The family of this 99-nucleotide RNA sequence from Shewanella woodyi is "TPP riboswitch aptamer (THI element)". Taxonomically the source falls in Shewanella woodyi (Bacteria, Pseudomonadota, Gammaproteobacteria, Shewanellaceae). Rfam links the family to the GO term thiamine pyrophosphate binding.

RNA sequence: GGCAUCUUGUCGGAGUGCCUAAAGGCUGAGACCGUUAAUUCGGGAUCCGUUGAACCUGAUCGGGUUAAUACCCGCGAAGGAAACAAGCAUGAUAAAAAC
Numbered sequence: 001g002g003c004a005u006c007u008u009g010u011c012g013g014a015g016u017g018c019c020u021a022a023a024g025g026c027u028g029a030g031a032c033c034g035u036u037a038a039u040u041c042g043g044g045a046u047c048c049g050u051u052g053a054a055c056c057u058g059a060u061c062g063g064g065u066u067a068a069u070a071c072c073c074g075c076g077a078a079g080g081a082a083a084c085a086a087g088c089a090u091g092a093u094a095a096a097a098a099c
Stems, first nucleotide, its partner, number of pairs: 006087005011049004016043001017026003033042002055080003061074004